[Rfam]
RNA sequence: CAAAACAGUGAUGGCUUACCAGAGCUCCCUGAGCUACAAAGGCCUCUGCUCUGGGGGUGAUGGCCAGUCCCAGUGUCUGAGUGAUU
Numbered sequence: 001c002a003a004a005a006c007a008g009u010g011a012u013g014g015c016u017u018a019c020c021a022g023a024g025c026u027c028c029c030u031g032a033g034c035u036a037c038a039a040a041g042g043c044c045u046c047u048g049c050u051c052u053g054g055g056g057g058u059g060a061u062g063g064c065c066a067g068u069c070c071c072a073g074u075g076u077c078u079g080a081g082u083g084a085u086u
Stems, first nucleotide, its partner, number of pairs: 002085001005082002010077003018074002022070001024068003027063002030060001032058001034056002040052001041050003
Small nucleolar RNA SNORD86: an 86-nucleotide sequence from Physeter macrocephalus. U86 belongs to the C/D family of snoRNAs. Its family is annotated with RNA processing and nucleolus in the Gene Ontology. The literature on the family includes a 2001 paper in Biochem Biophys Res Commun by Filippini et al., "U86, a novel snoRNA with an unprecedented gene organization in yeast". The family's RNA type in Rfam is C/D-box small nucleolar RNA.